Bacterial small signal recognition particle RNA: a 97-nucleotide RNA from Dolosicoccus paucivorans. By type it is a non-coding RNA gene. A reference for the family is Regalia et al. (2002), "Prediction of signal recognition particle RNA genes", Nucleic Acids Res. The base pairs follow the family's consensus structure, which is taken from published work. NCBI's taxonomy places the organism under Bacteria, Bacillati, Bacillota, Lactobacillales, Dolosicoccus. Rfam's curators write: The signal recognition particle (SRP) is a universally conserved ribonucleoprotein involved in the co-translational targeting of proteins to membranes.
RNA sequence: UAAUAGGUUUUGGGCAAUGAUGGAGCCGUGAAUGAGUCAGGGUCGGAAGACAGCAGCUAUAAGCGGUGAAGUCAUGUGCCUUUUUUAUUUUUAAAAU
Dot-bracket structure: ....((((...((((.(((((...(((((....((((....(((....)))....))).)..)))))...))))))..))).....)))).......